[Rfam]
RNA sequence: AUUGUGCUGUGCCCUUGUCAUUCUUCUUGCCUGUGUGCUUUUAUACUACUGGACGGAGAACUGAUAAGGGCAUAUCCGAUA
Numbered sequence: 001a002u003u004g005u006g007c008u009g010u011g012c013c014c015u016u017g018u019c020a021u022u023c024u025u026c027u028u029g030c031c032u033g034u035g036u037g038c039u040u041u042u043a044u045a046c047u048a049c050u051g052g053a054c055g056g057a058g059a060a061c062u063g064a065u066a067a068g069g070g071c072a073u074a075u076c077c078g079a080u081a
Stems, first nucleotide, its partner, number of pairs: 012070009021060006030052002
Shown here is an 81-nucleotide RNA from Helicoverpa armigera, a member of the family "mir-184 microRNA precursor family". The literature on the family includes a 2005 paper in Genes Dev by Chen et al., "The developmental miRNA profiles of zebrafish as determined by small RNA cloning". The source organism's lineage runs through Eukaryota, Dicondylia, Pterygota, Endopterygota and Helicoverpa. A search with the family's covariance model found it, with a score of 58 bits.